mir-184 microRNA precursor family: an 83-nucleotide RNA sequence from Cynoglossus semilaevis. Its family is annotated with RISC complex and gene silencing by miRNA in the Gene Ontology. For this family Rfam cites "The developmental miRNA profiles of zebrafish as determined by small RNA cloning" (Chen et al., Genes Dev, 2005).

RNA sequence: UCACUCACGUCUCCUUAUCACUUUUCCAGCCCAGCUGUAGAGUCUGUAUGUUGGACGGAGAACUGAUAAGGGCACGUGAAUGA
Numbered sequence: 001u002c003a004c005u006c007a008c009g010u011c012u013c014c015u016u017a018u019c020a021c022u023u024u025u026c027c028a029g030c031c032c033a034g035c036u037g038u039a040g041a042g043u044c045u046g047u048a049u050g051u052u053g054g055a056c057g058g059a060g061a062a063c064u065g066a067u068a069a070g071g072g073c074a075c076g077u078g079a080a081u082g083a
Base pairs, nucleotide, nucleotide: 012072013071014070015069016068017067018066019065020064022062023061024060025059026058027057030054031053